This 47-nucleotide RNA from Aquabacterium soli belongs to the Rfam family "Guanidine-II riboswitch aptamer (mini-ykkC)". About the family: Simpler in structure and has fewer highly conserved nucleotide positions than the ykkC-yxkD leader. Taxonomically the source falls in Aquabacterium (Bacteria, Pseudomonadati, Pseudomonadota, Sphaerotilaceae). The match comes from Rfam's covariance-model search (38 bits).
[Rfam]
RNA sequence: CCGGCGGGACGACCCGCCUGGACAUCCGAUACGGCAGGACGACCUGC
Numbered sequence: 001c002c003g004g005c006g007g008g009a010c011g012a013c014c015c016g017c018c019u020g021g022a023c024a025u026c027c028g029a030u031a032c033g034g035c036a037g038g039a040c041g042a043c044c045u046g047c
Stems, first nucleotide, its partner, number of pairs: 001020001003018006034047005